[Rfam]
RNA sequence: AGUCAAGAGUCUUUGGCAUCGUUUUGGUGAGCAUUUUUCUAUUGCCUGACAAAAGGUGAUGAAAAAAUG
Numbered sequence: 001a002g003u004c005a006a007g008a009g010u011c012u013u014u015g016g017c018a019u020c021g022u023u024u025u026g027g028u029g030a031g032c033a034u035u036u037u038u039c040u041a042u043u044g045c046c047u048g049a050c051a052a053a054a055g056g057u058g059a060u061g062a063a064a065a066a067a068u069g
Stems, first nucleotide, its partner, number of pairs: 010063001012061001014059001017058004022054005029047001031045003035041001
This 69-nucleotide RNA sequence from Rhizobium sp. RU36D belongs to the Rfam family "S-element". On this family, see Venkova-Canova et al., Mol Microbiol 2004: "Two discrete elements are required for the replication of a repABC plasmid: an antisense RNA and a stem-loop structure". The family has 29 seed sequences and 231 matches in Rfam 15.1. It scores 68 bits against the family's covariance model. From the family's description: This family represents a group of S-elements from p42d and related plasmids. The S-element has multiple functions and is believed to act as a negative regulator of repC transcription, be required for efficient replication and act as a translational enhancer of repC. It is annotated as a cis-regulatory element. Pairs were carried over by alignment from the consensus structure, which is taken from published work.